[Rfam]
RNA sequence: AACCGCAUGUAACUCCGAGCUUACUCACCUACGUUUUGCGCACAAUGUGUUGAACACAAAAUAGGGUGGUAAUGCCAAUAAUACGAAGUCGGUAUUAUUCAGGGAUACGUUGGAAACGAUUUAUCCUCUCCGUUUUUAGAAAGGUGUCAAAUGCAAACCAUU
Numbered sequence: 001a002a003c004c005g006c007a008u009g010u011a012a013c014u015c016c017g018a019g020c021u022u023a024c025u026c027a028c029c030u031a032c033g034u035u036u037u038g039c040g041c042a043c044a045a046u047g048u049g050u051u052g053a054a055c056a057c058a059a060a061a062u063a064g065g066g067u068g069g070u071a072a073u074g075c076c077a078a079u080a081a082u083a084c085g086a087a088g089u090c091g092g093u094a095u096u097a098u099u100c101a102g103g104g105a106u107a108c109g110u111u112g113g114a115a116a117c118g119a120u121u122u123a124u125c126c127u128c129u130c131c132g133u134u135u136u137u138a139g140a141a142a143g144g145u146g147u148c149a150a151a152u153g154c155a156a157a158c159c160a161u162u
Stems, first nucleotide, its partner, number of pairs: 006153001012147002015144002019075002022072001025069005033062006077099008102127006109120004128139002
Source information: Shown here is a 162-nucleotide RNA sequence from Aggregatibacter segnis, a member of the family "Molybdenum/Tungsten riboswitch aptamer (Moco RNA motif)". Gene Ontology terms of the family: regulation of gene expression, tungstate binding and molybdenum ion binding. NCBI's taxonomy places the organism under Bacteria, Gammaproteobacteria, Pasteurellales, Aggregatibacter, Aggregatibacter segnis.